[Rfam]
RNA sequence: AUCAAGGGAGUAGCGACGGCUCAGUCGAGUCGUGAUUAUGUCGUCAAUCCGAUUUUUUCCGGCAUGAUCUUAAACAGCGAGACUUGUUUUAACAAAACAGGUCUCUUUUC
Numbered sequence: 001a002u003c004a005a006g007g008g009a010g011u012a013g014c015g016a017c018g019g020c021u022c023a024g025u026c027g028a029g030u031c032g033u034g035a036u037u038a039u040g041u042c043g044u045c046a047a048u049c050c051g052a053u054u055u056u057u058u059c060c061g062g063c064a065u066g067a068u069c070u071u072a073a074a075c076a077g078c079g080a081g082a083c084u085u086g087u088u089u090u091a092a093c094a095a096a097a098c099a100g101g102u103c104u105c106u107u108u109u110c
Base pairs, nucleotide, nucleotide: 005033007031008030011028013026034069035068036067037066038065039064040063041062042061043060046058047057079105080104081103082102083101084100085099086098087097088096089095090094
Rfam assigns this 110-nucleotide RNA from Streptococcus merionis to the family "Streptococcus sRNA 10". A search with the family's covariance model found it, with a score of 68 bits. NCBI's taxonomy places the organism under Bacteria, Bacillota, Lactobacillales, Streptococcaceae, Streptococcus. It is annotated as a small RNA. The family's consensus secondary structure was predicted with RNAfold. For this family Rfam cites "Novel regulatory small RNAs in Streptococcus pyogenes" (Tesorero et al., PLoS One, 2013).